[Rfam]
RNA sequence: UAGUUUUUUAACUCUUCUAGAAUUUGUCCAGCAUGUUUUUUUGGUGUUAAUAAAAACCCAC
Dot-bracket structure: ..................................((((((.((....))..))))))....
Shown here is a 61-nucleotide sequence from Macaca mulatta, a member of the family "U7 small nuclear RNA". A search with the family's covariance model found it, with a score of 39 bits. Pairs were carried over by alignment from the consensus structure, which was predicted with PFOLD.